Record summary: Shown here is a 186-nucleotide sequence from Oceanobacillus iheyensis, a member of the family "6S / SsrS RNA". Lineage of the source: Bacteria > Bacillota > Caryophanales > Oceanobacillus > Oceanobacillus iheyensis. From the family's description: E. coli 6S RNA was the first non coding RNA to be sequenced, but its function was unknown until recently. It consists of 184 nucleotides that fold into an extended hairpin structure with a large single-stranded internal bulge. The 6S RNA specifically associates with RNA polymerase holoenzyme containing the sigma70 specificity factor. This interaction represses expression from a sigma70-dependent promoter during stationary phase. 6S RNA homologs have recently been identified in most bacterial genomes. It is one of the family's seed sequences. The base pairs follow the family's consensus structure, which is taken from published work.
RNA sequence: UACAAGCUACAUUGUUCGUAUUAAUAUAAGUUUUAACCUCUAAUGUUGGAAUAGGGAGUUUUACAUCGAAAUUGGAAUGCCGAGCCGCCGUUGAAGCGGAAGGCAGGAAGUUUUCUGCGAACACCCACUUUGCGAAGUGGUGGUUUAAAACUUUUUAUUACAAGAUACGGCAAAUGUGGCCUGUAU
Numbered sequence: 001u002a003c004a005a006g007c008u009a010c011a012u013u014g015u016u017c018g019u020a021u022u023a024a025u026a027u028a029a030g031u032u033u034u035a036a037c038c039u040c041u042a043a044u045g046u047u048g049g050a051a052u053a054g055g056g057a058g059u060u061u062u063a064c065a066u067c068g069a070a071a072u073u074g075g076a077a078u079g080c081c082g083a084g085c086c087g088c089c090g091u092u093g094a095a096g097c098g099g100a101a102g103g104c105a106g107g108a109a110g111u112u113u114u115c116u117g118c119g120a121a122c123a124c125c126c127a128c129u130u131u132g133c134g135a136a137g138u139g140g141u142g143g144u145u146u147a148a149a150a151c152u153u154u155u156u157a158u159u160a161c162a163a164g165a166u167a168c169g170g171c172a173a174a175u176g177u178g179g180c181c182u183g184u185a186u
Stems, first nucleotide, its partner, number of pairs: 002184003006180006012173004017169003029152004034147003037143002054126003058122004065116001068115004073110001079104002085099004
Dot-bracket structure: .(((.((((((((((.(((.........((((.(((((...............(((.((((...(..((((.(.....((....((((.......))))...)).....).)))))..)))).)))...............)).))).))))..............))))))).)))))).)))..